RNA sequence: GCUAUUUUCCGACUCCGAGCCUGUUUUCCUAAGUCGUCAGAUAUGGAAACUGUGCCUGUAACGCUGUUACACAGGGAUUGCCGAGAAAUGGGCCGUCCUCUCCCUUUAGAAAGGUGUCAAAUGCAAAGUAUC
Numbered sequence: 001g002c003u004a005u006u007u008u009c010c011g012a013c014u015c016c017g018a019g020c021c022u023g024u025u026u027u028c029c030u031a032a033g034u035c036g037u038c039a040g041a042u043a044u045g046g047a048a049a050c051u052g053u054g055c056c057u058g059u060a061a062c063g064c065u066g067u068u069a070c071a072c073a074g075g076g077a078u079u080g081c082c083g084a085g086a087a088a089u090g091g092g093c094c095g096u097c098c099u100c101u102c103c104c105u106u107u108a109g110a111a112a113g114g115u116g117u118c119a120a121a122u123g124c125a126a127a128g129u130a131u132c
Stems, first nucleotide, its partner, number of pairs: 003126001006123001011118003015114002019055002022052002025049005033042003057071005074099005080093003084089001100109002
A member of the RNA family "Molybdenum/Tungsten riboswitch aptamer (Moco RNA motif)" from Muribacter muris, 132 nucleotides long. Taxonomically the source falls in Muribacter (Bacteria, Pseudomonadota, Pasteurellales, Pasteurellaceae).